[Rfam]
RNA sequence: UUCACCGCGAGGUGGAAUCUGAAGGAAGCCGGAGGCAAAGUCCCGGACCGACGAACAGAAACCGCAUAUAGAGGCCGGCACAGGGCGGACGAGUUUGCCACACAAAACGAAGUCCAAUGCUACCCGAACCCUUGCUGGUAGAUGCGGUGGUUAGAUGGGAUGAAGGUUAUCGUU
Numbered sequence: 001u002u003c004a005c006c007g008c009g010a011g012g013u014g015g016a017a018u019c020u021g022a023a024g025g026a027a028g029c030c031g032g033a034g035g036c037a038a039a040g041u042c043c044c045g046g047a048c049c050g051a052c053g054a055a056c057a058g059a060a061a062c063c064g065c066a067u068a069u070a071g072a073g074g075c076c077g078g079c080a081c082a083g084g085g086c087g088g089a090c091g092a093g094u095u096u097g098c099c100a101c102a103c104a105a106a107a108c109g110a111a112g113u114c115c116a117a118u119g120c121u122a123c124c125c126g127a128a129c130c131c132u133u134g135c136u137g138g139u140a141g142a143u144g145c146g147g148u149g150g151u152u153a154g155a156u157g158g159g160a161u162g163a164a165g166g167u168u169a170u171c172g173u174u
Stems, first nucleotide, its partner, number of pairs: 001016006028174001030172003035167002040161006046152005062147006074139003078135003082132004087115004093108004

A member of the RNA family "Group II catalytic intron D1-D4-3" from a Bacillota bacterium, 174 nucleotides long.
The source organism's lineage runs through Bacteria, Bacillati and Bacillota.
It scores 149 bits against the family's covariance model.